Record summary:
Shown here is a 131-nucleotide sequence from Vitis vinifera, a member of the family "MIR845_2 microRNA precursor family". It scores 111 bits against the family's covariance model. Gene Ontology terms of the family: RISC complex and miRNA-mediated post-transcriptional gene silencing. The literature on the family includes a 2007 paper in Nature by Jaillon et al., "The grapevine genome sequence suggests ancestral hexaploidization in major angiosperm phyla". The organism belongs to Vitis, within Eukaryota.
RNA sequence: AAAACUCACAUUAAUUAUCCUUGGGACCAUGGGAUAAAAAAAAACCCUACAAAAAUAAGUUAGCAUGCCAUAGAAUGGUUCUAACAUGAUUACUAACCUAUGUAUCUCAUACUAGUUAAUGGGAAAAACCU
Numbered sequence: 001a002a003a004a005c006u007c008a009c010a011u012u013a014a015u016u017a018u019c020c021u022u023g024g025g026a027c028c029a030u031g032g033g034a035u036a037a038a039a040a041a042a043a044a045c046c047c048u049a050c051a052a053a054a055a056u057a058a059g060u061u062a063g064c065a066u067g068c069c070a071u072a073g074a075a076u077g078g079u080u081c082u083a084a085c086a087u088g089a090u091u092a093c094u095a096a097c098c099u100a101u102g103u104a105u106c107u108c109a110u111a112c113u114a115g116u117u118a119a120u121g122g123g124a125a126a127a128a129c130c131u
Base pairs, nucleotide, nucleotide: 009121010120011119012118013117014116015115016114023107024106025105028102029101030100031099032098033097048086053080054079056077057076060073061072062071